Shown here is a 105-nucleotide RNA from Neptunicella marina, a member of the family "Alpha operon ribosome binding site". About the family: The bacterial alpha operon ribosome binding site is surrounded by this complex pseudoknotted structure. A reference for the family is Schlax et al. (2001), "Translational repression of the Escherichia coli alpha operon mRNA: importance of an mRNA conformational switch and a ternary entrapment complex", J Biol Chem. The family's consensus secondary structure is taken from published work. The match comes from Rfam's covariance-model search (82 bits).
RNA sequence: CAAUUAGGUCGCCAGGUAAGUAUCCUAUCGGGCUUUUUAGGCUGGCGACAAGAACAUAGAGGAGUACUGUUAGUGGCCCGUAUAGCUGGCAUUAACAUUCCAGAA
Numbered sequence: 001c002a003a004u005u006a007g008g009u010c011g012c013c014a015g016g017u018a019a020g021u022a023u024c025c026u027a028u029c030g031g032g033c034u035u036u037u038u039a040g041g042c043u044g045g046c047g048a049c050a051a052g053a054a055c056a057u058a059g060a061g062g063a064g065u066a067c068u069g070u071u072a073g074u075g076g077c078c079c080g081u082a083u084a085g086c087u088g089g090c091a092u093u094a095a096c097a098u099u100c101c102a103g104a105a
Stems, first nucleotide, its partner, number of pairs: 004053002008049006024089002029080004037104002